[Rfam]
RNA sequence: CCUAAAAACACGCUUAAUUCCCGGUGGCAAUGUCCGGGAAGCGGGGGAACCAGUCAAUUGGGGCGAAUCGUCCGCCGGCCGGACGUAGGGGACCAUCGACCCGAGCCCGUCAGCUAACCUCGUCAGCGGGAGAUGGGUCUGAAU
Numbered sequence: 001c002c003u004a005a006a007a008a009c010a011c012g013c014u015u016a017a018u019u020c021c022c023g024g025u026g027g028c029a030a031u032g033u034c035c036g037g038g039a040a041g042c043g044g045g046g047g048a049a050c051c052a053g054u055c056a057a058u059u060g061g062g063g064c065g066a067a068u069c070g071u072c073c074g075c076c077g078g079c080c081g082g083a084c085g086u087a088g089g090g091g092a093c094c095a096u097c098g099a100c101c102c103g104a105g106c107c108c109g110u111c112a113g114c115u116a117a118c119c120u121c122g123u124c125a126g127c128g129g130g131a132g133a134u135g136g137g138u139c140u141g142a143a144u
Stems, first nucleotide, its partner, number of pairs: 011128004018040007041123006051060002061108003069085004088102003
RNA: c-di-AMP riboswitch aptamer (ydaO/yuaA leader)
Organism: Thermobacillus composti